Notes
A member of the RNA family "Wolbachia sRNA 46" from Gossypium harknessii, 142 nucleotides long. The match comes from Rfam's covariance-model search (67 bits). It is annotated as a small RNA. The family has 3 seed sequences and 237 matches in Rfam 15.1.

[Rfam]
RNA sequence: AAAAAAAGAAAAAAAAAUUUGGUGCUGGCCUGUCAAUGGCCGGCACCCAGUACAAAUUUUAAAAAAGAAAAUAAUUUUUUUAAAAAAAUUUGUACUGGGUGCCGGCCAUUGACAGGCCAGCACCCAAAAAUUUUUUUAUUUU
Numbered sequence: 001a002a003a004a005a006a007a008g009a010a011a012a013a014a015a016a017a018u019u020u021g022g023u024g025c026u027g028g029c030c031u032g033u034c035a036a037u038g039g040c041c042g043g044c045a046c047c048c049a050g051u052a053c054a055a056a057u058u059u060u061a062a063a064a065a066a067g068a069a070a071a072u073a074a075u076u077u078u079u080u081u082a083a084a085a086a087a088a089u090u091u092g093u094a095c096u097g098g099g100u101g102c103c104g105g106c107c108a109u110u111g112a113c114a115g116g117c118c119a120g121c122a123c124c125c126a127a128a129a130a131u132u133u134u135u136u137u138a139u140u141u142u
Stems, first nucleotide, its partner, number of pairs: 011137005021124030
Source information: NCBI's taxonomy places the organism under Eukaryota, Embryophyta, Spermatophyta, rosids, Gossypium.